RNA sequence: AUCGGAACUAGGCCGACGGGCCGAAAAGAGCGAACUCCCUGCGCUCCUGUUCCGCAUAUUUUUAUUUUGAGA
Dot-bracket structure: ..((((((..((((....)))).....(((((...[[.[.[)))))..))))))............].].]]